[Rfam]
RNA sequence: GUUGAGGCUCCAUCUACAAAUGGAUAAGUCUUUAGCGUUAGUUUAGACCUAGUUUAGUAAUACGAGCAAUAUAAGCCUUCUUUUGAAUUUAAAGAAGGCUUAUAUUGCUC
Numbered sequence: 001g002u003u004g005a006g007g008c009u010c011c012a013u014c015u016a017c018a019a020a021u022g023g024a025u026a027a028g029u030c031u032u033u034a035g036c037g038u039u040a041g042u043u044u045a046g047a048c049c050u051a052g053u054u055u056a057g058u059a060a061u062a063c064g065a066g067c068a069a070u071a072u073a074a075g076c077c078u079u080c081u082u083u084u085g086a087a088u089u090u091a092a093a094g095a096a097g098g099c100u101u102a103u104a105u106u107g108c109u110c
Stems, first nucleotide, its partner, number of pairs: 009024005064110009078098001081095004

The family of this 110-nucleotide RNA sequence is "Plastid-psbA-1 3UTR RNA".
Rfam's curators write: Plastid psbA-1 is a non-coding RNA (ncRNA) present in plastids. It was identified in inverted repeat sequences in the 3 prime untranslate region (3UTR) of photosystem II quinone-binding protein (psbA).
Clan: Plastid-psbA 3UTR RNA clan.